Rfam assigns this 31-nucleotide sequence from Notiomystis cincta to the family "Iron response element II". The match comes from Rfam's covariance-model search (32 bits). Pairs were carried over by alignment from the consensus structure, which is taken from published work.

RNA sequence: GAGUUAUCAGUUUCAGUGUAAAUUAUAAUUU
Numbered sequence: 001g002a003g004u005u006a007u008c009a010g011u012u013u014c015a016g017u018g019u020a021a022a023u024u025a026u027a028a029u030u031u
Stems, first nucleotide, its partner, number of pairs: 001031007009024005014018001